[Rfam]
RNA sequence: UUGCCCAUCGGGGCUGUGGAUACCUGCUUAAAUUUU
Numbered sequence: 001u002u003g004c005c006c007a008u009c010g011g012g013g014c015u016g017u018g019g020a021u022a023c024c025u026g027c028u029u030a031a032a033u034u035u036u
Stems, first nucleotide, its partner, number of pairs: 003014004017026003